[Rfam]
RNA sequence: GUGGGUUACGGCGAUAUGCACCCAGUGACCAUAGGGGGGAAGAUUGUGGGAUCUCUCUGUGCCAUCGCCGGUGUCUUGUCCAUCGCAUUGCCAGUUCCCGUGAUUGUUUCCAAC
Numbered sequence: 001g002u003g004g005g006u007u008a009c010g011g012c013g014a015u016a017u018g019c020a021c022c023c024a025g026u027g028a029c030c031a032u033a034g035g036g037g038g039g040a041a042g043a044u045u046g047u048g049g050g051a052u053c054u055c056u057c058u059g060u061g062c063c064a065u066c067g068c069c070g071g072u073g074u075c076u077u078g079u080c081c082a083u084c085g086c087a088u089u090g091c092c093a094g095u096u097c098c099c100g101u102g103a104u105u106g107u108u109u110c111c112a113a114c
Base pairs, nucleotide, nucleotide: 001114002113004111005110008107009106010105011104014101015100018097020095021094037077038076039075040074049063050062
RNA: Potassium channel RNA editing signal